About this RNA: The family of this 496-nucleotide RNA from Streptomyces sp. Root264 is "Saccharopolyspora sRNA 350". A search with the family's covariance model found it, with a score of 114 bits. Rfam classes the family as an antisense RNA. The source organism's lineage runs through Bacteria, Actinomycetota, Kitasatosporales, Streptomycetaceae and Streptomyces. The family has 2 seed sequences and 1,170 matches in Rfam 15.1. The family's consensus secondary structure was predicted with RNAfold.
[Rfam]
RNA sequence: GUGCAGUCGUGACGGGCGUCGGAGUCCGACAGGGCGUUCUCGCCGAAGUGGUCGCCGUCCGCGAGCACCGCGAGGGAGUUCUCUCCUCCGUACGGGCCCUCGGAGGUCUGGAUGAGCCGGCCGUGGGCGAUCAGGUGGAUCCGGUCCGCGGGGUCGCCGCGCUCGACGAGGACCUCGCCCGCCGUGAAAUCGCGUUGCGUGCAGCGGUCGGCGAGGACGGUGAGAACGUCCGCGUCCUCGAAUCCGCGCAGAAGGGCCAGUUCGCCGAGCUCCCGGGGGAUCACCCGGACCGUGGCGCCCUCCUGGACGAACUCGAUGCGCCCGUCGCCGAGGGUGUGGCGCAACCGCCGGUUGACCCGGUAGGCGCCGCCUUUGGCCUCGACCCAGGGCAGCAUCCGCAGCAGCCAGCGGGAGGUGAUCUCCUGCAUCUGCGGGGCGGACUUGGUGGUGGUGGCGAGGUUGCGGGCGGCGGCGGUACUCAGGGACUGCUGCGCCG
Numbered sequence: 001g002u003g004c005a006g007u008c009g010u011g012a013c014g015g016g017c018g019u020c021g022g023a024g025u026c027c028g029a030c031a032g033g034g035c036g037u038u039c040u041c042g043c044c045g046a047a048g049u050g051g052u053c054g055c056c057g058u059c060c061g062c063g064a065g066c067a068c069c070g071c072g073a074g075g076g077a078g079u080u081c082u083c084u085c086c087u088c089c090g091u092a093c094g095g096g097c098c099c100u101c102g103g104a105g106g107u108c109u110g111g112a113u114g115a116g117c118c119g120g121c122c123g124u125g126g127g128c129g130a131u132c133a134g135g136u137g138g139a140u141c142c143g144g145u146c147c148g149c150g151g152g153g154u155c156g157c158c159g160c161g162c163u164c165g166a167c168g169a170g171g172a173c174c175u176c177g178c179c180c181g182c183c184g185u186g187a188a189a190u191c192g193c194g195u196u197g198c199g200u201g202c203a204g205c206g207g208u209c210g211g212c213g214a215g216g217a218c219g220g221u222g223a224g225a226a227c228g229u230c231c232g233c234g235u236c237c238u239c240g241a242a243u244c245c246g247c248g249c250a251g252a253a254g255g256g257c258c259a260g261u262u263c264g265c266c267g268a269g270c271u272c273c274c275g276g277g278g279g280a281u282c283a284c285c286c287g288g289a290c291c292g293u294g295g296c297g298c299c300c301u302c303c304u305g306g307a308c309g310a311a312c313u314c315g316a317u318g319c320g321c322c323c324g325u326c327g328c329c330g331a332g333g334g335u336g337u338g339g340c341g342c343a344a345c346c347g348c349c350g351g352u353u354g355a356c357c358c359g360g361u362a363g364g365c366g367c368c369g370c371c372u373u374u375g376g377c378c379u380c381g382a383c384c385c386a387g388g389g390c391a392g393c394a395u396c397c398g399c400a401g402c403a404g405c406c407a408g409c410g411g412g413a414g415g416u417g418a419u420c421u422c423c424u425g426c427a428u429c430u431g432c433g434g435g436g437c438g439g440a441c442u443u444g445g446u447g448g449u450g451g452u453g454g455c456g457a458g459g460u461u462g463c464g465g466g467c468g469g470c471g472g473c474g475g476u477a478c479u480c481a482g483g484g485a486c487u488g489c490u491g492c493g494c495c496g
Stems, first nucleotide, its partner, number of pairs: 003384001006383004011378001013376001015322002018319001019316004025310002030306001032304003036300001041297005048227002052223007059103003069095001071094002074088001075086003113214001117210001121206001124203001125200001127198004134191001137190001144185001148183001149181004154172002158168002228290004234284002238280002243277004248272001250271002254265001256263001323336004345375001347371001349369003356364002385425005391419001393417003397412001399410001401409001431470002434467001437464002440461001441459003445455002475495001478493001480491003